[Rfam]
A member of the RNA family "Photosynthesis regulatory RNA1" from Nostocales cyanobacterium LEGE 11386, 88 nucleotides long. Lineage of the source: Bacteria > Bacillati > Cyanobacteriota > Cyanophyceae > Nostocales. From the family's description: Formerly known as Syr1 discovered in Synechocystis sp PCC 6803, is a regulatory factor controlling photosynthetic functions. Gene Ontology terms of the family: regulation of translation and regulation of photosynthesis.
RNA sequence: UAAAAUUUCGCUCUUCUGUAUCGAUGUAUCUUAAUCGUCAUUCUUACUUCUCCUAAUCAAAAACCUCGAUUGCCAAGUCGAGGUUUUU
Number, nucleotide and partner (000 for none) at each position: 001u000002a000003a000004a000005a000006u000007u000008u000009c000010g000011c000012u000013c000014u000015u000016c000017u000018g000019u000020a000021u000022c000023g000024a000025u000026g000027u000028a000029u000030c000031u000032u000033a000034a000035u000036c000037g000038u000039c000040a000041u000042u000043c000044u000045u000046a000047c000048u000049u000050c000051u000052c000053c000054u000055a000056a000057u000058c000059a084060a000061a000062a000063a000064c083065c082066u081067c080068g079069a078070u077071u000072g000073c000074c000075a000076a000077g070078u069079c068080g067081a066082g065083g064084u059085u000086u000087u000088u000